[Rfam]
RNA sequence: AGAGUCCUGAUGUGUUCGUUGUUUAACCUGAAGUUUUGACCUAACAUCUAUCCUUCGGGAGUUCGCGUUUCUGGGCCGCGUAAAUGCCUCUGGCUAGAGGACUUACAGAAACCCGGGACAGGACACCCACCUGCUGAGAGCGGGUUCAAGACGAAGGCAACCAACACGACGGCACGAUUGGGACUCUU
Numbered sequence: 001a002g003a004g005u006c007c008u009g010a011u012g013u014g015u016u017c018g019u020u021g022u023u024u025a026a027c028c029u030g031a032a033g034u035u036u037u038g039a040c041c042u043a044a045c046a047u048c049u050a051u052c053c054u055u056c057g058g059g060a061g062u063u064c065g066c067g068u069u070u071c072u073g074g075g076c077c078g079c080g081u082a083a084a085u086g087c088c089u090c091u092g093g094c095u096a097g098a099g100g101a102c103u104u105a106c107a108g109a110a111a112c113c114c115g116g117g118a119c120a121g122g123a124c125a126c127c128c129a130c131c132u133g134c135u136g137a138g139a140g141c142g143g144g145u146u147c148a149a150g151a152c153g154a155a156g157g158c159a160a161c162c163a164a165c166a167c168g169a170c171g172g173c174a175c176g177a178u179u180g181g182g183a184c185u186c187u188u
Base pairs, nucleotide, nucleotide: 002186003185004184005183006182007181008180009179010178011177012175013174014173015172017171018170019169033152034151035150037148038147039146040144041143057128058127059126061124062123063122064121068118070117071116072115073114074113075112082104083103087100088099089098090097091096
Description: The record is a 188-nucleotide RNA from Mesobacillus boroniphilus, which matches "6S / SsrS RNA" in Rfam. Pairs were carried over by alignment from the consensus structure, which is taken from published work. Rfam classes the family as a non-coding RNA gene. Taxonomically the source falls in Mesobacillus boroniphilus (Bacteria, Bacilli, Caryophanales, Bacillaceae). E. coli 6S RNA was the first non coding RNA to be sequenced, but its function was unknown until recently. Rfam 15.1 lists 5,006 matches to the family in 4,638 species.